[Rfam]
RNA: U2 spliceosomal RNA
Organism: Entosiphon sulcatum
RNA sequence: AUACCUUCUCGGCCUUUUGGCUAAGAUCAAGUGUAGUAUCUGUUCUUAUCAGCUUAAUUUCUGAUAUAUCGGACACUGUCCGAUUGAGAAAUUAAACUAAUUUUUUGAUGGGGGCAAGGGGUUCCCCUCGUGCUUGCGCGAGUCCCUUGCCACGGGUUGCCCUGCUAUUGCACUACCGGCAGGCGCGGCCCAACCCAC
Numbered sequence: 001a002u003a004c005c006u007u008c009u010c011g012g013c014c015u016u017u018u019g020g021c022u023a024a025g026a027u028c029a030a031g032u033g034u035a036g037u038a039u040c041u042g043u044u045c046u047u048a049u050c051a052g053c054u055u056a057a058u059u060u061c062u063g064a065u066a067u068a069u070c071g072g073a074c075a076c077u078g079u080c081c082g083a084u085u086g087a088g089a090a091a092u093u094a095a096a097c098u099a100a101u102u103u104u105u106u107g108a109u110g111g112g113g114g115c116a117a118g119g120g121g122u123u124c125c126c127c128u129c130g131u132g133c134u135u136g137c138g139c140g141a142g143u144c145c146c147u148u149g150c151c152a153c154g155g156g157u158u159g160c161c162c163u164g165c166u167a168u169u170g171c172a173c174u175a176c177c178g179g180c181a182g183g184c185g186c187g188g189c190c191c192a193a194c195c196c197a198c
Stems, first nucleotide, its partner, number of pairs: 007026003011022004047066006068084007113151008129140004154191006161183006